Notes:
The record is a 99-nucleotide sequence from Nomascus leucogenys, which matches "Y RNA" in Rfam. A reference for the family is Van Horn et al. (1995), "Caenorhabditis elegans embryos contain only one major species of Ro RNP", RNA. A search with the family's covariance model found it, with a score of 42 bits.
RNA sequence: GGCUGGUUCGAGUGCAGUGGUGUUUACAACUGAUUGAUCAUAAUCAGGUACGGAUUUCUUUGUUCCCUCUUCACUCCCACUGCUUUAUUUAAACUUAAA
Dot-bracket structure: ....((((.((..(.(((((.(.....(((.((.........................)).)))...........))))))....)..)).))))....
Numbered sequence: 001g002g003c004u005g006g007u008u009c010g011a012g013u014g015c016a017g018u019g020g021u022g023u024u025u026a027c028a029a030c031u032g033a034u035u036g037a038u039c040a041u042a043a044u045c046a047g048g049u050a051c052g053g054a055u056u057u058c059u060u061u062g063u064u065c066c067c068u069c070u071u072c073a074c075u076c077c078c079a080c081u082g083c084u085u086u087a088u089u090u091a092a093a094c095u096u097a098a099a
Stems, first nucleotide, its partner, number of pairs: 005095004010090002014086001016081005022076001028064003032060002